[Rfam]
RNA sequence: GCACAGUGGCAGUGUGGUUAGCUGGUUGUGCUUCGUUAUUCUCACGACCACUAACCAUACUACCCUUGUGA
Numbered sequence: 001g002c003a004c005a006g007u008g009g010c011a012g013u014g015u016g017g018u019u020a021g022c023u024g025g026u027u028g029u030g031c032u033u034c035g036u037u038a039u040u041c042u043c044a045c046g047a048c049c050a051c052u053a054a055c056c057a058u059a060c061u062a063c064c065c066u067u068g069u070g071a
Stems, first nucleotide, its partner, number of pairs: 002070004008064002011061011023050008
RNA: mir-34 microRNA precursor family
Organism: Ignelater luminosus